Rfam assigns this 305-nucleotide RNA sequence from Fukomys damarensis to the family "7SK RNA". It scores 264 bits against the family's covariance model. It is annotated as a non-coding RNA gene. The base pairs follow the family's consensus structure, which is taken from published work. Rfam describes the family as follows. 7SK was discovered as an abundant small nuclear RNA in the mid-70s but a possible function has only recently been suggested. On this family, see Blencowe, Curr Biol 2002: "Transcription: surprising role for an elusive small nuclear RNA".
[Rfam]
RNA sequence: GGAUGUGAGGGCGAUCUGGCUGCGACAUCUGUCACCCCAUUGAUCGCCAGGGUUGAUUCAGCUGAUCUGGCUGGCUAGGCAGGUGUCCCCUUCCUCCCUCACCGCUCCAUGUGCGUCCCUCCCGAAGCUGCGCGCUUGGUCGAAGAGGACGACCACCCCCGAUAGAGGAGGACCGUUUCCUCGGUCAAGAGUAUAUGAGUAGCUGCGCUCCCCUGCUAGAACCUCCAAACAAGCUCUCAAGAAUUUUCAGGGCAUCCUGAGUUUAUUUGAUAAAAUUUUGGCUAAUUCCUCAAAUUUACUGGUGA
Numbered sequence: 001g002g003a004u005g006u007g008a009g010g011g012c013g014a015u016c017u018g019g020c021u022g023c024g025a026c027a028u029c030u031g032u033c034a035c036c037c038c039a040u041u042g043a044u045c046g047c048c049a050g051g052g053u054u055g056a057u058u059c060a061g062c063u064g065a066u067c068u069g070g071c072u073g074g075c076u077a078g079g080c081a082g083g084u085g086u087c088c089c090c091u092u093c094c095u096c097c098c099u100c101a102c103c104g105c106u107c108c109a110u111g112u113g114c115g116u117c118c119c120u121c122c123c124g125a126a127g128c129u130g131c132g133c134g135c136u137u138g139g140u141c142g143a144a145g146a147g148g149a150c151g152a153c154c155a156c157c158c159c160c161g162a163u164a165g166a167g168g169a170g171g172a173c174c175g176u177u178u179c180c181u182c183g184g185u186c187a188a189g190a191g192u193a194u195a196u197g198a199g200u201a202g203c204u205g206c207g208c209u210c211c212c213c214u215g216c217u218a219g220a221a222c223c224u225c226c227a228a229a230c231a232a233g234c235u236c237u238c239a240a241g242a243a244u245u246u247u248c249a250g251g252g253c254a255u256c257c258u259g260a261g262u263u264u265a266u267u268u269g270a271u272a273a274a275a276u277u278u279u280g281g282c283u284a285a286u287u288c289c290u291c292a293a294a295u296u297u298a299c300u301g302g303u304g305a
Stems, first nucleotide, its partner, number of pairs: 001108003005102007013093002018090002024087010035074002037070003042067004046062002116171002118168004122139004127135002140162003147158002202267001204265001208261002213259001215257001223252003233247001